[Rfam]
RNA sequence: GGCCCGGCUCUUGCUAUCGGAUAAGCAUCGGUAACCAACGGCGGUUGCCCCACCCACGACAAAGACGUCGC
Numbered sequence: 001g002g003c004c005c006g007g008c009u010c011u012u013g014c015u016a017u018c019g020g021a022u023a024a025g026c027a028u029c030g031g032u033a034a035c036c037a038a039c040g041g042c043g044g045u046u047g048c049c050c051c052a053c054c055c056a057c058g059a060c061a062a063a064g065a066c067g068u069c070g071c
Stems, first nucleotide, its partner, number of pairs: 030049007
Dot-bracket structure: .............................(((((((......)))))))......................